[Rfam]
RNA sequence: UUCGACCACGCCGGCAGUUGCCUGUUGAUCCGCCGCAAUUAUGAUGGACGAAUCACAGUCAACUGUUGGCACGGUCUUC
Numbered sequence: 001u002u003c004g005a006c007c008a009c010g011c012c013g014g015c016a017g018u019u020g021c022c023u024g025u026u027g028a029u030c031c032g033c034c035g036c037a038a039u040u041a042u043g044a045u046g047g048a049c050g051a052a053u054c055a056c057a058g059u060c061a062a063c064u065g066u067u068g069g070c071a072c073g074g075u076c077u078u079c
Base pairs, nucleotide, nucleotide: 004076005075006074007073011069012068014066015065016064017063018062019061020060022058023057026055027054028053029052031050032049033047034046035045

Overview:
Rfam assigns this 79-nucleotide sequence from Caenorhabditis brenneri to the family "mir-250 microRNA precursor family". A search with the family's covariance model found it, with a score of 77 bits.